[Rfam]
Description:
A member of the RNA family "glmS glucosamine-6-phosphate activated ribozyme aptamer" from Turicibacter sp. H121, 161 nucleotides long. Pairs were carried over by alignment from the consensus structure, which is taken from published work. The source organism's lineage runs through Bacteria, Bacillota, Erysipelotrichales, Turicibacteraceae and Turicibacter. A search with the family's covariance model found it, with a score of 116 bits.
RNA sequence: AUUCAAGUAUAAGCGCCAGAGCUGUUAACUAAAGAUGACAGCUGACGAGGUGAAGGUUAAUCGAUUAUUCGGCGGAUGCCUUCCGGCUGUAUACCUCAGUCGUAGUCUUCAAACAAAACUAAGAGGUAACUCUUACGACAAAAUUGGAGAAAAGGUAAAUA
Numbered sequence: 001a002u003u004c005a006a007g008u009a010u011a012a013g014c015g016c017c018a019g020a021g022c023u024g025u026u027a028a029c030u031a032a033a034g035a036u037g038a039c040a041g042c043u044g045a046c047g048a049g050g051u052g053a054a055g056g057u058u059a060a061u062c063g064a065u066u067a068u069u070c071g072g073c074g075g076a077u078g079c080c081u082u083c084c085g086g087c088u089g090u091a092u093a094c095c096u097c098a099g100u101c102g103u104a105g106u107c108u109u110c111a112a113a114c115a116a117a118a119c120u121a122a123g124a125g126g127u128a129a130c131u132c133u134u135a136c137g138a139c140a141a142a143a144u145u146g147g148a149g150a151a152a153a154g155g156u157a158a159a160u161a
Base pairs, nucleotide, nucleotide: 020043021042022041023040024039025038026037027036029034052083053082054081055080056079061072062071063070064069084102085101086100087099088098089097106150107149108148109147110146111145120135121134122133123132124131125130